[Rfam]
This 199-nucleotide RNA from Oryza rufipogon belongs to the Rfam family "MIR812 microRNA precursor family". The family has 22 seed sequences and 57,451 matches in Rfam 15.1. Taxonomically the source falls in Oryza (Eukaryota, Viridiplantae, Streptophytina, Magnoliopsida). Rfam links the family to the GO terms miRNA-mediated post-transcriptional gene silencing and RISC complex.
RNA sequence: UUCUAAUGCACUGUUCAUAUCUAGCGUUUGACCGUUUAUCUUAUUUGAAAUUUUUUUAUGAUUAGUAUUUUUGUUGUUAUUAGAUGAUAAAACAUAAAUAAUACUUUAUGUGUGACUAUUUUUCAAAAAAAAAUUAUAAUUUUUUCAAAUAAGACAGACAAUUAAAAGUUGGACACGGAUACCCACAGUUGCACUUAUU
Number, nucleotide and partner (000 for none) at each position: 001u000002u000003c000004u000005a000006a000007u000008g000009c000010a000011c000012u000013g000014u000015u000016c000017a000018u000019a000020u173021c172022u171023a170024g169025c168026g000027u166028u165029u164030g163031a162032c000033c000034g159035u158036u157037u156038a000039u154040c153041u152042u151043a150044u149045u000046u000047g000048a000049a000050a000051u000052u000053u000054u000055u000056u000057u000058a000059u000060g000061a000062u000063u000064a000065g000066u000067a000068u000069u000070u000071u000072u000073g000074u000075u000076g000077u000078u000079a000080u000081u000082a000083g000084a000085u000086g000087a000088u000089a000090a000091a000092a000093c000094a000095u000096a000097a000098a000099u000100a000101a000102u000103a000104c000105u000106u000107u000108a000109u000110g000111u000112g000113u000114g000115a000116c000117u000118a000119u000120u000121u000122u000123u000124c000125a000126a000127a000128a000129a000130a000131a000132a000133a000134u000135u000136a000137u000138a000139a000140u000141u000142u000143u000144u000145u000146c000147a000148a000149a044150u043151a042152a041153g040154a039155c000156a037157g036158a035159c034160a000161a000162u031163u030164a029165a028166a027167a000168g025169u024170u023171g022172g021173a020174c000175a000176c000177g000178g000179a000180u000181a000182c000183c000184c000185a000186c000187a000188g000189u000190u000191g000192c000193a000194c000195u000196u000197a000198u000199u000